[Rfam]
RNA sequence: GCAACGGCUAGGCUUAGCGGCUGAAAGCUGGGCAUCAUCACCCGGCCCGCCGUUGCAUUUUUCUUCCUUUGAUG
Numbered sequence: 001g002c003a004a005c006g007g008c009u010a011g012g013c014u015u016a017g018c019g020g021c022u023g024a025a026a027g028c029u030g031g032g033c034a035u036c037a038u039c040a041c042c043c044g045g046c047c048c049g050c051c052g053u054u055g056c057a058u059u060u061u062u063c064u065u066c067c068u069u070u071g072a073u074g
Stems, first nucleotide, its partner, number of pairs: 001056008011022004027046005035074001038071001

Notes:
The family of this 74-nucleotide sequence from Rubripirellula obstinata is "int-alpA RNA". The base pairs follow the family's consensus structure, which is taken from published work. Acidobacteria (1 example), Planctomycetes (1 example), Proteobacteria.